[Rfam]
RNA sequence: AACAAUUGGGGGUAUUUGUAUGAAGCAGUACAAAAAGAUGUAGUCAGUUGCAAAAUCAAUGCUCGUUUGCAACCCAGAACUCAUUGUUAGGUGUGAGUUCUGACCCACACAAGAAGGACCACA
Numbered sequence: 001a002a003c004a005a006u007u008g009g010g011g012g013u014a015u016u017u018g019u020a021u022g023a024a025g026c027a028g029u030a031c032a033a034a035a036a037g038a039u040g041u042a043g044u045c046a047g048u049u050g051c052a053a054a055a056u057c058a059a060u061g062c063u064c065g066u067u068u069g070c071a072a073c074c075c076a077g078a079a080c081u082c083a084u085u086g087u088u089a090g091g092u093g094u095g096a097g098u099u100c101u102g103a104c105c106c107a108c109a110c111a112a113g114a115a116g117g118a119c120c121a122c123a
Stems, first nucleotide, its partner, number of pairs: 003050007015034005062117002066113004075102010